Shown here is a 47-nucleotide RNA sequence from Pseudoselenomonas lactilytica, a member of the family "DUF3800-XI RNA". Actinobacteria, Firmicutes, Proteobacteria, Spirochaetes (1 example). Rfam classes the family as a small RNA. The family's consensus secondary structure is taken from published work.
RNA sequence: CGGGCUGGCCGACAGGCCCAGGUCCACCGUGGGCGGGGAAGUUCCCC
Numbered sequence: 001c002g003g004g005c006u007g008g009c010c011g012a013c014a015g016g017c018c019c020a021g022g023u024c025c026a027c028c029g030u031g032g033g034c035g036g037g038g039a040a041g042u043u044c045c046c047c
Stems, first nucleotide, its partner, number of pairs: 002025005007018004